The record is a 183-nucleotide RNA sequence from Gracilibacillus boraciitolerans, which matches "Lysine riboswitch aptamer" in Rfam. The organism belongs to Gracilibacillus boraciitolerans, within Bacteria. The match comes from Rfam's covariance-model search (116 bits).

RNA sequence: AGUGAGAAUAGAGGUGCAAAAACCAUUAGUACAUAUUCAGAGGUCGAAGGAACCUGUGAUGUUUAUGGAAAGGGGAAUUUGCCGAAGUGAUAAAAGAUUACCUUCGAUUUUAUCACUGGUCCAUCAUUGAAAAAAUGUCGGGCUGUCAUAUAGUGUUGUGCUAUAUGGAGGGCUAUCUCACGC
Numbered sequence: 001a002g003u004g005a006g007a008a009u010a011g012a013g014g015u016g017c018a019a020a021a022a023c024c025a026u027u028a029g030u031a032c033a034u035a036u037u038c039a040g041a042g043g044u045c046g047a048a049g050g051a052a053c054c055u056g057u058g059a060u061g062u063u064u065a066u067g068g069a070a071a072g073g074g075g076a077a078u079u080u081g082c083c084g085a086a087g088u089g090a091u092a093a094a095a096g097a098u099u100a101c102c103u104u105c106g107a108u109u110u111u112a113u114c115a116c117u118g119g120u121c122c123a124u125c126a127u128u129g130a131a132a133a134a135a136u137g138u139c140g141g142g143c144u145g146u147c148a149u150a151u152a153g154u155g156u157u158g159u160g161c162u163a164u165a166u167g168g169a170g171g172g173c174u175a176u177c178u179c180a181c182g183c
Stems, first nucleotide, its partner, number of pairs: 006178001008176004016082005023075002032067004038061002086117010118144005125137004146168007